Shown here is a 94-nucleotide RNA sequence from SAR202 cluster bacterium AD-802-L14_MRT_200m, a member of the family "Selenocysteine transfer RNA". The organism belongs to SAR202 cluster, within Bacteria.

RNA sequence: GGGAGUGGAUGGGUCCCGGUGGGCCUUGCGGACUUCAACUCCGUUGGCGUGCGCCCUUCGGUGUGCGCGGAGGGUUCGACUCCCUCGCACUCCC
Numbered sequence: 001g002g003g004a005g006u007g008g009a010u011g012g013g014u015c016c017c018g019g020u021g022g023g024c025c026u027u028g029c030g031g032a033c034u035u036c037a038a039c040u041c042c043g044u045u046g047g048c049g050u051g052c053g054c055c056c057u058u059c060g061g062u063g064u065g066c067g068c069g070g071a072g073g074g075u076u077c078g079a080c081u082c083c084c085u086c087g088c089a090c091u092c093c094c
Stems, first nucleotide, its partner, number of pairs: 001094007008086001011026006028044005047068007071085004